[Rfam]
RNA sequence: UCGCUGGUAACGGCGGGGUGGCAACGAAGCGAUAGGAAGUGGAUGGUACAUAGCGCAAGCGAACCAGAUACGGCAGGCACGGGGCGGCGAGUGCGCAAAAUAGGACGACGCCCGAAUCUCGGACAGACCGUGCAUGUGAGUGAGGAUGGGAUUAUCCACUGGGAUCGG
Numbered sequence: 001u002c003g004c005u006g007g008u009a010a011c012g013g014c015g016g017g018g019u020g021g022c023a024a025c026g027a028a029g030c031g032a033u034a035g036g037a038a039g040u041g042g043a044u045g046g047u048a049c050a051u052a053g054c055g056c057a058a059g060c061g062a063a064c065c066a067g068a069u070a071c072g073g074c075a076g077g078c079a080c081g082g083g084g085c086g087g088c089g090a091g092u093g094c095g096c097a098a099a100a101u102a103g104g105a106c107g108a109c110g111c112c113c114g115a116a117u118c119u120c121g122g123a124c125a126g127a128c129c130g131u132g133c134a135u136g137u138g139a140g141u142g143a144g145g146a147u148g149g150g151a152u153u154a155u156c157c158a159c160u161g162g163g164a165u166c167g168g
Stems, first nucleotide, its partner, number of pairs: 001016006030167004037160001041157006047150001049148003064145002068141001073137003077133006086112003091106002094103001
The record is a 168-nucleotide RNA sequence from Pontiella desulfatans, which matches "Group II catalytic intron D1-D4-3" in Rfam.
A search with the family's covariance model found it, with a score of 41 bits.
Lineage of the source: Bacteria > Pseudomonadati > Kiritimatiellales > Pontiellaceae > Pontiella.